Rfam assigns this 65-nucleotide RNA sequence from Propionispira arboris to the family "Fluoride riboswitch aptamer (crcB RNA motif)". NCBI's taxonomy places the organism under Bacteria, Bacillati, Selenomonadales, Selenomonadaceae, Propionispira. A search with the family's covariance model found it, with a score of 44 bits.
[Rfam]
RNA sequence: UCUCUUAUAGGCGAUGGAGUUCGCCAUAAAUUUGUUCGGUGAACAAUGAUGACUCCUACCAUUUU
Dot-bracket structure: .........[[[[..((((((]]]].........................)))))).........